[Rfam]
RNA: mir-19 microRNA precursor family
RNA sequence: CCUCUGUCAGUUUUGCAGAUUUGCACUGCGGUGGUGCCUCGUUCCCAAGCUGUGCAAAUCCCCUGCAAAACUGAUGGCGA
Numbered sequence: 001c002c003u004c005u006g007u008c009a010g011u012u013u014u015g016c017a018g019a020u021u022u023g024c025a026c027u028g029c030g031g032u033g034g035u036g037c038c039u040c041g042u043u044c045c046c047a048a049g050c051u052g053u054g055c056a057a058a059u060c061c062c063c064u065g066c067a068a069a070a071c072u073g074a075u076g077g078c079g080a
Stems, first nucleotide, its partner, number of pairs: 002079001004077014018061001020058007030051003